Shown here is a 133-nucleotide sequence from Mesocricetibacter intestinalis, a member of the family "Histidine operon leader". At least 6 amino acid operons are known to be regulated by attenuation. In each a leader sequence of 150-200 bp is found upstream of the first gene in the operon. This leader sequence can assume two different secondary structures known as the terminator and the anti-terminator structure. By type it is a cis-regulatory leader. A search with the family's covariance model found it, with a score of 75 bits.
Nucleotides: 133
Stems, first nucleotide, its partner, number of pairs: 008046003011040002018033003047072008095130001097128014
Number, partner (000 for none) and nucleotide at each position: 001000u002000c003000a004000u005000c006000a007000c008046c009045a010044u011040c012039a013000u014000u015000a016000u017000c018033c019032c020031g021000a022000u023000u024000a025000a026000u027000c028000u029000u030000g031020c032019g033018g034000a035000g036000a037000u038000u039012u040011g041000g042000u043000g044010g045009u046008g047072u048071c049070c050069g051068g052067a053066a054065g055000a056000u057000a058000g059000a060000a061000c062000a063000a064000c065054c066053u067052u068051c069050c070049g071048g072047a073000a074000a075000c076000g077000u078000g079000c080000a081000g082000u083000u084000a085000a086000a087000c088000a089000a090000a091000c092000a093000a094000c095130a096000u097128a098127a099126a100125c101124c102123u103122u104121u105120c106119g107118g108117a109116a110115g111000g112000c113000a114000a115110c116109u117108u118107u119106c120105g121104a122103a123102a124101g125100g126099u127098u128097u129000u130095u131000u132000u133000a